[Rfam]
Nucleotides: 054
Stems, first nucleotide, its partner, number of pairs: 013043001014041003020036006
Number, partner (000 for none) and nucleotide at each position: 001000a002000c003000u004000a005000g006000a007000g008000u009000u010000u011000u012000u013043u014041g015040u016039a017000a018000g019000u020036c021035g022034c023033u024032c025031u026000g027000g028000a029000u030000a031025a032024g033023a034022g035021c036020g037000u038000c039016u040015g041014c042000u043013a044000a045000a046000u047000g048000a049000c050000u051000u052000a053000a054000a